[Rfam]
RNA sequence: ACUAUAGUAACGCCACACGCUACUAUGUUGAUCUUUACGAUCAGCUUUCUUAUCGUGCUUCGGCAAUACAAAACUUAGAUUUGAUGUAUUGCAGAGUAUUGAAAUAUAGAAACGCAUUGUCAAU
Numbered sequence: 001a002c003u004a005u006a007g008u009a010a011c012g013c014c015a016c017a018c019g020c021u022a023c024u025a026u027g028u029u030g031a032u033c034u035u036u037a038c039g040a041u042c043a044g045c046u047u048u049c050u051u052a053u054c055g056u057g058c059u060u061c062g063g064c065a066a067u068a069c070a071a072a073a074c075u076u077a078g079a080u081u082u083g084a085u086g087u088a089u090u091g092c093a094g095a096g097u098a099u100u101g102a103a104a105u106a107u108a109g110a111a112a113c114g115c116a117u118u119g120u121c122a123a124u
Stems, first nucleotide, its partner, number of pairs: 001028002004026006012020002056065003079124001081123005090116003099108001100106001
The record is a 124-nucleotide sequence, which matches "Bacteriophage Diversity-Generating Retroelement RNA" in Rfam.
It is annotated as a small RNA.
On this family, see Handa et al., Nature 2025: "RNA control of reverse transcription in a diversity-generating retroelement".
The base pairs follow the family's consensus structure, which is taken from published work.